[Rfam]
RNA: ALIL pseudoknot
RNA sequence: CGCGUUUUUCGCUCAGGCGGAGCUCGACCGCCGACUCAAGUGAUGGUGGCCUACAUCAGCGCAUACCCGGACCGGUUCGGCGUCGAGCCGAUCUGUGCCGUGCUGUCCGAGCACGGCAUGAAGAUCGCGCCG
Numbered sequence: 001c002g003c004g005u006u007u008u009u010c011g012c013u014c015a016g017g018c019g020g021a022g023c024u025c026g027a028c029c030g031c032c033g034a035c036u037c038a039a040g041u042g043a044u045g046g047u048g049g050c051c052u053a054c055a056u057c058a059g060c061g062c063a064u065a066c067c068c069g070g071a072c073c074g075g076u077u078c079g080g081c082g083u084c085g086a087g088c089c090g091a092u093c094u095g096u097g098c099c100g101u102g103c104u105g106u107c108c109g110a111g112c113a114c115g116g117c118a119u120g121a122a123g124a125u126c127g128c129g130c131c132g
Stems, first nucleotide, its partner, number of pairs: 016032005078132005089127002092124003